[Rfam]
RNA: Small nucleolar RNA SNORA61
Organism: Erinaceus europaeus
RNA sequence: GCCCUCUGGUUCCCUUUCCCAUCAGAUCUGAAUAUUGGUCUUGGUGGUCGUAAAAGGAGGGAUAGCAAUACUGAAGCUGGCUUCAUAGGCUCUGUAGUCUGCCAUUUAAUAUGUGGGCUAGUUUCAAACAAAU
Numbered sequence: 001g002c003c004c005u006c007u008g009g010u011u012c013c014c015u016u017u018c019c020c021a022u023c024a025g026a027u028c029u030g031a032a033u034a035u036u037g038g039u040c041u042u043g044g045u046g047g048u049c050g051u052a053a054a055a056g057g058a059g060g061g062a063u064a065g066c067a068a069u070a071c072u073g074a075a076g077c078u079g080g081c082u083u084c085a086u087a088g089g090c091u092c093u094g095u096a097g098u099c100u101g102c103c104a105u106u107u108a109a110u111a112u113g114u115g116g117g118c119u120a121g122u123u124u125c126a127a128a129c130a131a132a133u
Stems, first nucleotide, its partner, number of pairs: 003060005019047005025040004077121007093111003